[Rfam]
The record is a 583-nucleotide part of an RNA from Halorutilus salinus, which matches "Archaeal large subunit ribosomal RNA" in Rfam. The family is grouped with related families in Rfam's "LSU clan". Lineage of the source: Archaea > Methanobacteriota > Halorutilales > Halorutilaceae > Halorutilus. Its family is annotated with structural constituent of ribosome and ribosome in the Gene Ontology. The base pairs follow the family's consensus structure, which is taken from published work.
RNA sequence: UCCCCAGGGGGAAGCGAAGACCCUAUAGAGCUUUACUGCAGCCUGUCGUUGGGUCAUGGGCUCCUAUGUGCAGCAUAGGUAGGAGUCGUUACAGAGGUGCGUGCGCCAGCACGUCGCCCAGACAUCAUUGAAAUACUACCCGUAGGAGACUGUGACCCUCACUCCGGGAGGAGGACAUCAACAGGUGGGCAGUUUGACUGGGGCGGUACACGCUUGAAAAUGUAUCGAGCGUGCCCAAAGAUUGCCUCGUCCGGGUCAGGAACCCGGAGUAGAGUGUAAGAGCAAAAGGCAGUCUGACGCUGUUCUCAAGAAACGGAGGACGGCGAGCCGAAAGGCGGGUCUAGCGAACCUACCAGCCUGCUCGUUGCGGGCGGUAGAUGACGGAAAAGCUACCUUAGGGAUAACAGAGUCGUCACCGGCAAGAGUACAUAUCGACCCGGUGGCUUGCUACCUCGAUGUCGGUUCCGCCCAUCCUGGCGGUGCAGCAGCCGCCAAGGGUGAGGUUGUUCGCCUAUUAAAGGGCGUCGUGAGCUGGGUUUAGACCGUCGUGAGACAGGUCGGUUGCUAUCUACUGGGGAUGUCA
Numbered sequence: 001u002c003c004c005c006a007g008g009g010g011g012a013a014g015c016g017a018a019g020a021c022c023c024u025a026u027a028g029a030g031c032u033u034u035a036c037u038g039c040a041g042c043c044u045g046u047c048g049u050u051g052g053g054u055c056a057u058g059g060g061c062u063c064c065u066a067u068g069u070g071c072a073g074c075a076u077a078g079g080u081a082g083g084a085g086u087c088g089u090u091a092c093a094g095a096g097g098u099g100c101g102u103g104c105g106c107c108a109g110c111a112c113g114u115c116g117c118c119c120a121g122a123c124a125u126c127a128u129u130g131a132a133a134u135a136c137u138a139c140c141c142g143u144a145g146g147a148g149a150c151u152g153u154g155a156c157c158c159u160c161a162c163u164c165c166g167g168g169a170g171g172a173g174g175a176c177a178u179c180a181a182c183a184g185g186u187g188g189g190c191a192g193u194u195u196g197a198c199u200g201g202g203g204c205g206g207u208a209c210a211c212g213c214u215u216g217a218a219a220a221u222g223u224a225u226c227g228a229g230c231g232u233g234c235c236c237a238a239a240g241a242u243u244g245c246c247u248c249g250u251c252c253g254g255g256u257c258a259g260g261a262a263c264c265c266g267g268a269g270u271a272g273a274g275u276g277u278a279a280g281a282g283c284a285a286a287a288g289g290c291a292g293u294c295u296g297a298c299g300c301u302g303u304u305c306u307c308a309a310g311a312a313a314c315g316g317a318g319g320a321c322g323g324c325g326a327g328c329c330g331a332a333a334g335g336c337g338g339g340u341c342u343a344g345c346g347a348a349c350c351u352a353c354c355a356g357c358c359u360g361c362u363c364g365u366u367g368c369g370g371g372c373g374g375u376a377g378a379u380g381a382c383g384g385a386a387a388a389g390c391u392a393c394c395u396u397a398g399g400g401a402u403a404a405c406a407g408a409g410u411c412g413u414c415a416c417c418g419g420c421a422a423g424a425g426u427a428c429a430u431a432u433c434g435a436c437c438c439g440g441u442g443g444c445u446u447g448c449u450a451c452c453u454c455g456a457u458g459u460c461g462g463u464u465c466c467g468c469c470c471a472u473c474c475u476g477g478c479g480g481u482g483c484a485g486c487a488g489c490c491g492c493c494a495a496g497g498g499u500g501a502g503g504u505u506g507u508u509c510g511c512c513u514a515u516u517a518a519a520g521g522g523c524g525u526c527g528u529g530a531g532c533u534g535g536g537u538u539u540a541g542a543c544c545g546u547c548g549u550g551a552g553a554c555a556g557g558u559c560g561g562u563u564g565c566u567a568u569c570u571a572c573u574g575g576g577g578a579u580g581u582c583a
Stems, first nucleotide, its partner, number of pairs: 001578007010570003014565002022399004027395002029391005035193004042185005048179001051158009061148008078140005085123003100113005162173004196209001197207003210232006235339002241293006247273002250268006274283002298325009327336001329334001350377005356372005408449003412446001413443007423433002460535001461533004465527001466524005473498002477492005501513004541559004545554003